[Rfam]
RNA sequence: UUAUUACUGAGUAUAUGGGGGCAUGGGCACAAGAUUCAACGGGAUAUGUAUCAGAAAAUAAAAAAGGAGGCGAUAGCCUCCUUUUUUUGACCGUA
Number, nucleotide and partner (000 for none) at each position: 001u000002u000003a000004u000005u000006a000007c000008u038009g000010a036011g035012u034013a000014u000015a000016u032017g000018g030019g000020g028021g000022c000023a000024u000025g000026g000027g000028c020029a000030c018031a000032a016033g000034a012035u011036u010037c000038a008039a000040c000041g000042g000043g000044a000045u000046a000047u000048g000049u000050a000051u000052c000053a000054g000055a000056a000057a000058a000059u000060a000061a086062a085063a084064a083065a082066g081067g080068a079069g078070g077071c076072g000073a000074u000075a000076g071077c070078c069079u068080c067081c066082u065083u064084u063085u062086u061087u000088u000089g000090a000091c000092c000093g000094u000095a000
A member of the RNA family "sraA" from Photobacterium gaetbulicola, 95 nucleotides long. On this family, see Argaman et al., Curr Biol 2001: "Novel small RNA-encoding genes in the intergenic regions of Escherichia coli". It scores 57 bits against the family's covariance model.